IMPDH RNA: a 110-nucleotide RNA sequence.
It is one of the family's seed sequences.
Rfam classes the family as a small RNA.
RNA sequence: UUUUUGGGAUAUCGGGCACCGGGCCUCCUCCUCCGACUGGAACUCCUUCACAGUCUGUGUUCCGUGUGCCGCACAGGCGAUGUCCCGCUUCGUGUGCAAAAAAGCUCGUC
Numbered sequence: 001u002u003u004u005u006g007g008g009a010u011a012u013c014g015g016g017c018a019c020c021g022g023g024c025c026u027c028c029u030c031c032u033c034c035g036a037c038u039g040g041a042a043c044u045c046c047u048u049c050a051c052a053g054u055c056u057g058u059g060u061u062c063c064g065u066g067u068g069c070c071g072c073a074c075a076g077g078c079g080a081u082g083u084c085c086c087g088c089u090u091c092g093u094g095u096g097c098a099a100a101a102a103a104g105c106u107c108g109u110c
Stems, first nucleotide, its partner, number of pairs: 007085007015070005022061003034057001035055005071095004075090004